[Rfam]
The record is a 107-nucleotide sequence, which matches "DUF3800-I RNA" in Rfam. The sequence is in the family's curated seed alignment. By type it is a small RNA.

RNA sequence: UAUAGUUGCAGGUAGAGAUACGCUGUAUACCCACAUUACCGAAUUAGCGUUUAAGUGUCAUGUGUUGGCACCGGCUGUGGGGCCGCCGAAAGGCGGUUUUUUUUAUA
Numbered sequence: 001u002a003u004a005g006u007u008g009c010a011g012g013u014a015g016a017g018a019u020a021c022g023c024u025g026u027a028u029a030c031c032c033a034c035a036u037u038a039c040c041g042a043a044u045u046a047g048c049g050u051u052u053a054a055g056u057g058u059c060a061u062g063u064g065u066u067g068g069c070a071c072c073g074g075c076u077g078u079g080g081g082g083c084c085g086c087c088g089a090a091a092g093g094c095g096g097u098u099u100u101u102u103u104u105a106u107a
Stems, first nucleotide, its partner, number of pairs: 007027005012021003030081006039074003042051003055071006082097006